The record is a 74-nucleotide sequence from Nyctibius grandis, which matches "Small nucleolar RNA SNORD59" in Rfam. The family is grouped with related families in Rfam's "SNORD59 clan". By type it is a C/D-box small nucleolar RNA. The organism belongs to Nyctibius, within Eukaryota. The base pairs follow the family's consensus structure, which was predicted with ILM. The literature on the family includes a 2002 paper in Mol Cell Biol by Galardi et al., "Purified box C/D snoRNPs are able to reproduce site-specific 2'-O-methylation of target RNA in vitro".
[Rfam]
RNA sequence: CCUUCGCUGAUGAGCGACCGUUUGACUUUCGUUCUUCUGAGCUCGCUGAAGCAGCGGUUAUUGAUCUGAGGAGG
Number, nucleotide and partner (000 for none) at each position: 001c074002c073003u072004u000005c070006g000007c000008u000009g000010a000011u000012g000013a000014g000015c000016g000017a000018c000019c000020g000021u000022u000023u000024g000025a000026c000027u000028u000029u000030c000031g000032u000033u000034c000035u000036u000037c000038u000039g000040a000041g000042c000043u000044c000045g000046c000047u000048g000049a000050a000051g000052c000053a000054g000055c000056g000057g000058u000059u000060a000061u000062u000063g000064a000065u000066c000067u000068g000069a000070g005071g000072a003073g002074g001